[Rfam]
RNA sequence: AUUGUUGCGUUGAAGGAAAGAAGUAAUUACGAAACCUCAAUGAUAGCGACCUUAGGAUGGUGAAAGCUAAGGAUUGAUCCGUAAUGAAAGGCAUUCUGGAGCAUACUAAUUUAAAGUGGCUUAUACAUAUAAGCAAUUAGGGUGGAACCGCGGGCUAGCUCCCGUCCCUAUG
Numbered sequence: 001a002u003u004g005u006u007g008c009g010u011u012g013a014a015g016g017a018a019a020g021a022a023g024u025a026a027u028u029a030c031g032a033a034a035c036c037u038c039a040a041u042g043a044u045a046g047c048g049a050c051c052u053u054a055g056g057a058u059g060g061u062g063a064a065a066g067c068u069a070a071g072g073a074u075u076g077a078u079c080c081g082u083a084a085u086g087a088a089a090g091g092c093a094u095u096c097u098g099g100a101g102c103a104u105a106c107u108a109a110u111u112u113a114a115a116g117u118g119g120c121u122u123a124u125a126c127a128u129a130u131a132a133g134c135a136a137u138u139a140g141g142g143u144g145g146a147a148c149c150g151c152g153g154g155c156u157a158g159c160u161c162c163c164g165u166c167c168c169u170a171u172g
Base pairs, nucleotide, nucleotide: 007102008101015097016096017095018094026085027084028083029082030081031080039075040074041073050072051071052070053069054068055067119134120133121132122131123130124129139169140168141167142166150165151164152163153162154161
This 172-nucleotide RNA sequence belongs to the Rfam family "T-box leader". Rfam 15.1 lists 19,395 matches to the family in 1,923 species. It is annotated as a cis-regulatory leader. Rfam links the family to the GO term tRNA binding.